[Rfam]
RNA: permuted transfer-messenger RNA
Organism: uncultured cyanobacterium
RNA sequence: GGUGAUCCACACCAGUGUUUCGGACAGCGGUUCGAUUCCGCUCAGCUCCAUUGUUCUCUCCUCCCUGGUUUCGAUCGGUGGAUGCGCGGGGCUGCAAUGGUUUCGACGGGGCAUCAGGAGGGUGACUGAAGCCUGCUCGGUAAGAGCAAACCCGUAACAGCGAACAACAUCGUUCGUUUCUCCCGUCAAGCCGCCCCUGUGGCCGCCUGA
Numbered sequence: 001g002g003u004g005a006u007c008c009a010c011a012c013c014a015g016u017g018u019u020u021c022g023g024a025c026a027g028c029g030g031u032u033c034g035a036u037u038c039c040g041c042u043c044a045g046c047u048c049c050a051u052u053g054u055u056c057u058c059u060c061c062u063c064c065c066u067g068g069u070u071u072c073g074a075u076c077g078g079u080g081g082a083u084g085c086g087c088g089g090g091g092c093u094g095c096a097a098u099g100g101u102u103u104c105g106a107c108g109g110g111g112c113a114u115c116a117g118g119a120g121g122g123u124g125a126c127u128g129a130a131g132c133c134u135g136c137u138c139g140g141u142a143a144g145a146g147c148a149a150a151c152c153c154g155u156a157a158c159a160g161c162g163a164a165c166a167a168c169a170u171c172g173u174u175c176g177u178u179u180c181u182c183c184c185g186u187c188a189a190g191c192c193g194c195c196c197c198u199g200u201g202g203c204c205g206c207c208u209g210a
Base pairs, nucleotide, nucleotide: 001127002126003125005123016113017112018111020109021108022107026042027041028040029039030038043094044093045092046091047090048089049088